[Rfam]
Ribosomal protein L10 leader: a 124-nucleotide sequence from Baia soyae.
RNA sequence: GAUUGAAAUCGAAUAGAACCGUAGACAGUAGGGGUGCUUGGAGCACUUAAUGUUCCCUACCGAGGUGUUUUUUUGAUAAAACCCUUGGCCUUCGACUGUCUACGAAGGCUUUUCUUUUUCCUAC
Numbered sequence: 001g002a003u004u005g006a007a008a009u010c011g012a013a014u015a016g017a018a019c020c021g022u023a024g025a026c027a028g029u030a031g032g033g034g035u036g037c038u039u040g041g042a043g044c045a046c047u048u049a050a051u052g053u054u055c056c057c058u059a060c061c062g063a064g065g066u067g068u069u070u071u072u073u074u075g076a077u078a079a080a081a082c083c084c085u086u087g088g089c090c091u092u093c094g095a096c097u098g099u100c101u102a103c104g105a106a107g108g109c110u111u112u113u114c115u116u117u118u119u120c121c122u123a124c
Stems, first nucleotide, its partner, number of pairs: 028060006034046003088109007
Source information
Its family is annotated with regulation of gene expression in the Gene Ontology. Pairs were carried over by alignment from the consensus structure, which was predicted with CMfinder. The family's RNA type in Rfam is cis-regulatory leader.